[Rfam]
RNA sequence: UGUUUAGUAUAAGUUAGUUCCAUGCAAUAUUUGGGACAUAUUUAUACUAAAU
Numbered sequence: 001u002g003u004u005u006a007g008u009a010u011a012a013g014u015u016a017g018u019u020c021c022a023u024g025c026a027a028u029a030u031u032u033g034g035g036a037c038a039u040a041u042u043u044a045u046a047c048u049a050a051a052u
Base pairs, nucleotide, nucleotide: 006048007047008046009045010044011043012042014040018036019035020034021033022031
This 52-nucleotide sequence from Pongo abelii belongs to the Rfam family "mir-1302 microRNA precursor family". The match comes from Rfam's covariance-model search (63 bits). Rfam 15.1 lists 16,160 matches to the family in 135 species. A reference for the family is Morin et al. (2008), "Application of massively parallel sequencing to microRNA profiling and discovery in human embryonic stem cells", Genome Res. The base pairs follow the family's consensus structure, which was predicted with WAR.